The family of this 80-nucleotide sequence is "Small nucleolar RNA SNORD69". Pairs were carried over by alignment from the consensus structure. On this family, see Huttenhofer et al., EMBO J 2001: "RNomics: an experimental approach that identifies 201 candidates for novel, small, non-messenger RNAs in mouse".
[Rfam]
RNA sequence: AACAUGAAGCAGUGAUGACAGAUUGGAUCUGACUUAACUGCUGUGCUGAGUUUGUUCAAUCCAACCCUGAGCUUCAUGUU
Numbered sequence: 001a002a003c004a005u006g007a008a009g010c011a012g013u014g015a016u017g018a019c020a021g022a023u024u025g026g027a028u029c030u031g032a033c034u035u036a037a038c039u040g041c042u043g044u045g046c047u048g049a050g051u052u053u054g055u056u057c058a059a060u061c062c063a064a065c066c067c068u069g070a071g072c073u074u075c076a077u078g079u080u
Stems, first nucleotide, its partner, number of pairs: 001080010
Rfam's curators put it in the seed alignment. About the family: snoRNA HBII-210 belongs to the C/D family of snoRNAs. It is the human orthologue of the mouse MBII-210 and is predicted to guide the 2'O-ribose methylation of large 28S rRNA on residue G4464.